[Rfam]
RNA: SAM riboswitch aptamer (S box leader)
RNA sequence: CUUUUAUAAAGAGUGAACGAGAGAUCUGGCUCUGUGACUUCACAGCAACCUGCCUGUUGGGAAAGGUGCUUCAACCAGCAAAGCAGCUGCUUUGGAUGAUAAAGA
Numbered sequence: 001c002u003u004u005u006a007u008a009a010a011g012a013g014u015g016a017a018c019g020a021g022a023g024a025u026c027u028g029g030c031u032c033u034g035u036g037a038c039u040u041c042a043c044a045g046c047a048a049c050c051u052g053c054c055u056g057u058u059g060g061g062a063a064a065g066g067u068g069c070u071u072c073a074a075c076c077a078g079c080a081a082a083g084c085a086g087c088u089g090c091u092u093u094g095g096a097u098g099a100u101a102a103a104g105a
Stems, first nucleotide, its partner, number of pairs: 002104006013043005021032003026078004044070004049066002051062001053060002074097001079094006